[Rfam]
Nucleotides: 140
Stems, first nucleotide, its partner, number of pairs: 001064003010060005020054002025049002030042002075135002078132005089120012
Number, partner (000 for none) and nucleotide at each position: 001064a002063g003062a004000u005000c006000a007000g008000c009000a010060a011059g012058u013057c014056u015000u016000c017000u018000a019000u020054a021053g022000g023000u024000u025049g026048u027000c028000u029000a030042g031041u032000a033000a034000a035000a036000a037000a038000a039000c040000a041031a042030c043000c044000c045000u046000u047000u048026a049025c050000c051000a052000a053021c054020u055000u056014a057013g058012g059011c060010u061000c062003u063002u064001u065000g066000g067000g068000a069000g070000a071000a072000u073000a074000a075135a076134g077000a078132c079131c080130a081129u082128a083000c084000u085000c086000c087000a088000c089120a090119g091118u092117g093116g094115g095114u096113u097112a098111u099110a100109u101000c102000a103000c104000u105000a106000a107000a108000c109100a110099u111098a112097u113096a114095g115094c116093c117092c118091a119090u120089u121000a122000c123000u124000a125000u126000c127000u128082u129081g130080u131079g132078g133000c134076c135075u136000a137000c138000a139000u140000u